S10-Clostridia ribosomal protein leader: a 98-nucleotide sequence from Anaerostipes sp. 992a. It scores 84 bits against the family's covariance model. On this family, see Eckert and Weinberg, BMC Microbiol 2020: "Discovery of 20 novel ribosomal leader candidates in bacteria and archaea".
RNA sequence: UGAUAGCGAAGAAGCGCGAGGUUGCUGCAUGAAAAAACGUAAGGUUUUGUGCAGGUUUUCCGUGGAGCGAAUGUCAAGUUAUUGAAAACUGGCGACAA
Dot-bracket structure: .............(((.((((...((((((((((..........))))))))))..)))))))........((((..((((........)))))))).